Rfam assigns this 83-nucleotide RNA from Pieris brassicae to the family "mir-4433 microRNA precursor family".
Rfam 15.1 lists 36 matches to the family in 18 species.
The base pairs follow the family's consensus structure, which was predicted with RNAalifold.
It scores 78 bits against the family's covariance model.
[Rfam]
RNA sequence: CCCCCCCCCCCCCCCCCCCCCCCCCCCUUUUUUUCUUUUAUUUAAAAAAAAAAAAAGGGGGGGGGGGGGGGGGGGGGGGGGGA
Number, nucleotide and partner (000 for none) at each position: 001c000002c082003c081004c080005c079006c078007c077008c076009c075010c074011c073012c072013c071014c070015c069016c068017c067018c066019c065020c064021c063022c062023c061024c060025c059026c058027c057028u056029u055030u054031u053032u052033u051034u050035c000036u000037u000038u000039u000040a000041u000042u000043u000044a000045a000046a000047a000048a000049a000050a034051a033052a032053a031054a030055a029056a028057g027058g026059g025060g024061g023062g022063g021064g020065g019066g018067g017068g016069g015070g014071g013072g012073g011074g010075g009076g008077g007078g006079g005080g004081g003082g002083a000